[Rfam]
RNA sequence: AGCACUGUGUGGUAUCUGCAGCCAGCUGCUUCACCAGCUGGUAUGUUCAAAAGUCAGUGCUAAAGUAGCUCAGCUUCUGGCAUCGUUGGUCUCUAUGCUGCCUGUGUGUGGAGUCCUGGUAUUUUAGCUGAGACACGU
Number, nucleotide and partner (000 for none) at each position: 001a000002g060003c059004a058005c057006u056007g055008u000009g000010u000011g000012g000013u000014a054015u053016c000017u051018g046019c045020a044021g000022c000023c041024a039025g038026c037027u036028g035029c000030u000031u000032c000033a000034c000035c028036a027037g026038c025039u024040g000041g023042u000043a000044u020045g019046u018047u000048c000049a000050a000051a017052a000053g015054u014055c007056a006057g005058u004059g003060c002061u000062a000063a000064a000065g125066u000067a123068g122069c000070u119071c118072a117073g116074c000075u000076u000077c000078u000079g000080g105081c104082a103083u000084c000085g000086u000087u000088g000089g000090u000091c000092u000093c000094u000095a000096u000097g000098c000099u000100g000101c000102c000103u082104g081105u080106g000107u000108g000109u000110g000111g000112a000113g000114u000115c000116c073117u072118g071119g070120u000121a000122u068123u067124u000125u065126a000127g000128c000129u000130g000131a000132g000133a000134c000135a000136c000137g000138u000
The family of this 138-nucleotide sequence from Cyprinodon variegatus is "Small nucleolar RNA SNORA8". By type it is an H/ACA-box small nucleolar RNA. The base pairs follow the family's consensus structure, which was predicted with RNAfold. It scores 55 bits against the family's covariance model. ACA8 is a member of the H/ACA class of snoRNA that guide the sites of modification of uridines to pseudouridines. The family is grouped with related families in Rfam's "SNORA8 clan". The family has 5 seed sequences and 1,490 matches in Rfam 15.1.